The family of this 578-nucleotide part of an RNA from Methanolinea tarda is "Archaeal large subunit ribosomal RNA". Taxonomically the source falls in Methanolinea tarda (Archaea, Methanobacteriota, Methanoregulaceae, Methanolinea).
RNA sequence: CUCCUAUUGGGAAGUGAAGACCCCGUGGAGCUUUACUGCAGCCUGUCGCUGAAUUACGGUAUUACAUGCGCAGCGUAGAUGGGAGGCGCUUGAUCCGUUCCUUUCGGGGGACGGGGAGCCAACAAUGAGACACCAUCCUUGUUUUACUGUAGUUCUCACUCCAACGAGGACAACGAUAGGUAGGCAGUUUGGGUGGGGCGCCACACCCUCGAAAAAAUAUCAAGGGUGCCCAAAGGUCAACUCAUGUGAGUCAGAAACUCACAGGAGAGUGUCAAGAGCAAAAGUUGGCCUGACGCGAUUGCGCCUAGCAAGCAAUCGCGAGAGGAAACUCGGGUCUAACGAACCAAUACGCCCUGUUGGUGAGGGCUAUUGACGACAGAAAAGCUACCCCGGGGAUAACAGAGUCGUCGCCGGCAAGAGCACAUAUCGACCCGGCGGCUUGCUACCUCGAUGUCGGUUCUUUCCAUCCUGGCUGUGCAGCAGCAGCCAAGGGUGAGGUUGUUCGCCUAUUAAAGGGGAUCGUGAGCUGGGUUUAGACCGUCGUGAGACAGGUCGGUUACUAUCUAAUAGGAGUGUCA
Number, nucleotide and partner (000 for none) at each position: 001c573002u572003c571004c570005u569006a568007u567008u566009g000010g565011g564012a563013a000014g560015u559016g000017a000018a000019g000020a000021c000022c394023c393024c392025g391026u000027g390028g389029a386030g385031c384032u383033u382034u000035a188036c187037u186038g185039c000040a000041g000042c180043c179044u178045g177046u176047c175048g174049c000050u000051g155052a154053a153054u152055u151056a150057c149058g148059g147060u146061a145062u000063u000064a142065c141066a140067u000068g138069c000070g000071c000072a000073g000074c000075g000076u000077a000078g137079a136080u135081g134082g133083g000084a000085g120086g119087c118088g000089c000090u000091u000092g000093a000094u000095c000096c000097g000098u111099u110100c109101c108102u107103u000104u000105c000106g000107g102108g101109g100110g099111a098112c000113g000114g000115g000116g000117a000118g087119c086120c085121a000122a000123c000124a000125a000126u000127g000128a000129g000130a000131c000132a000133c082134c081135a080136u079137c078138c068139u000140u066141g065142u064143u000144u000145u061146a060147c059148u058149g057150u056151a055152g054153u053154u052155c051156u000157c000158a000159c168160u167161c166162c000163a000164a000165c000166g161167a160168g159169g000170a000171c000172a000173a000174c048175g047176a046177u045178a044179g043180g042181u000182a000183g000184g000185c038186a037187g036188u035189u000190u000191g204192g202193g201194u200195g000196g000197g000198g000199c000200g194201c193202c192203a000204c191205a227206c226207c225208c224209u223210c000211g000212a000213a000214a000215a000216a000217a000218u000219a000220u000221c000222a000223a209224g208225g207226g206227u205228g000229c000230c334231c333232a000233a000234a000235g000236g289237u288238c287239a286240a285241c284242u268243c267244a000245u263246g262247u261248g260249a259250g258251u000252c000253a000254g000255a000256a000257a000258c250259u249260c248261a247262c246263a245264g000265g000266a000267g243268a242269g279270u278271g000272u000273c000274a000275a000276g000277a000278g270279c269280a000281a000282a000283a000284g241285u240286u239287g238288g237289c236290c000291u000292g000293a000294c320295g319296c318297g317298a316299u315300u314301g313302c312303g000304c000305c000306u000307a000308g000309c000310a000311a000312g302313c301314a300315a299316u298317c297318g296319c295320g294321a000322g331323a000324g329325g000326a000327a000328a000329c324330u000331c322332g000333g231334g230335u000336c000337u000338a000339a000340c000341g000342a000343a000344c000345c372346a371347a370348u369349a368350c000351g367352c366353c365354c364355u363356g000357u000358u000359g000360g000361u000362g000363a355364g354365g353366g352367c351368u349369a348370u347371u346372g345373a000374c000375g000376a000377c000378a000379g000380a000381a000382a033383a032384g031385c030386u029387a000388c000389c028390c027391c025392g024393g023394g022395g000396a000397u000398a000399a000400c000401a000402g000403a444404g443405u442406c000407g441408u438409c437410g436411c435412c434413g433414g432415c000416a000417a000418g428419a427420g000421c000422a000423c000424a000425u000426a000427u419428c418429g000430a000431c000432c414433c413434g412435g411436c410437g409438g408439c000440u000441u407442g405443c404444u403445a000446c000447c000448u000449c000450g000451a000452u000453g000454u000455c530456g528457g527458u526459u525460c522461u519462u518463u517464c516465c515466a000467u000468c493469c492470u000471g000472g487473c486474u485475g484476u483477g000478c000479a000480g000481c000482a000483g476484c475485a474486g473487c472488c000489a000490a000491g000492g469493g468494u000495g000496a508497g507498g506499u505500u000501g000502u000503u000504c000505g499506c498507c497508u496509a000510u000511u000512a000513a000514a000515g465516g464517g463518g462519a461520u000521c000522g460523u000524g000525a459526g458527c457528u456529g000530g455531g000532u000533u000534u000535a000536g554537a553538c552539c551540g549541u548542c547543g000544u000545g000546a000547g542548a541549c540550a000551g539552g538553u537554c536555g000556g000557u000558u000559a015560c014561u000562a000563u012564c011565u010566a008567a007568u006569a005570g004571g003572a002573g001574u000575g000576u000577c000578a000
Overview: Pairs were carried over by alignment from the consensus structure, which is taken from published work.